[Rfam]
RNA sequence: AGCUAUGAUGAGUAAAGAAACAUGGCUGACUUGGUAUUGGUACCUUCUGGUGUCUCUGACCAGGGUCUGAUUGUGUUUAAUCUUCUCUCUGAGCUG
Number, nucleotide and partner (000 for none) at each position: 001a000002g094003c093004u000005a000006u000007g000008a000009u000010g000011a000012g000013u000014a000015a000016a000017g000018a000019a000020a000021c000022a000023u000024g000025g000026c000027u000028g000029a000030c000031u000032u000033g000034g000035u000036a000037u000038u000039g054040g053041u052042a051043c000044c000045u000046u000047c000048u000049g000050g000051u042052g041053u040054c039055u000056c000057u000058g000059a000060c000061c000062a000063g000064g000065g000066u000067c000068u000069g000070a000071u000072u000073g000074u000075g000076u000077u000078u000079a000080a000081u000082c000083u000084u000085c000086u000087c000088u000089c000090u000091g000092a000093g003094c002095u000096g000
A member of the RNA family "Z30 small nucleolar RNA" from Hemibagrus wyckioides, 96 nucleotides long. It is annotated as a C/D-box small nucleolar RNA. The family's consensus secondary structure was predicted with PFOLD. Gene Ontology terms of the family: RNA processing and nucleolus. The literature on the family includes a 2002 paper in Mol Cell Biol by Galardi et al., "Purified box C/D snoRNPs are able to reproduce site-specific 2'-O-methylation of target RNA in vitro". Lineage of the source: Eukaryota > Metazoa > Teleostei > Siluriformes > Hemibagrus.